[Rfam]
RNA sequence: UUCAAUCCCCAGUUCUGCAAAGUUGUGACUCCUAGUCCAGUGCUCCUGAUCGUUGCUAGGCCCUGGGCGAGGGGUCUGGAGGUCUGGGUUUGAAUGUC
Numbered sequence: 001u002u003c004a005a006u007c008c009c010c011a012g013u014u015c016u017g018c019a020a021a022g023u024u025g026u027g028a029c030u031c032c033u034a035g036u037c038c039a040g041u042g043c044u045c046c047u048g049a050u051c052g053u054u055g056c057u058a059g060g061c062c063c064u065g066g067g068c069g070a071g072g073g074g075u076c077u078g079g080a081g082g083u084c085u086g087g088g089u090u091u092g093a094a095u096g097u098c
Stems, first nucleotide, its partner, number of pairs: 008088005015081002018078001027076007035068002038065003042061003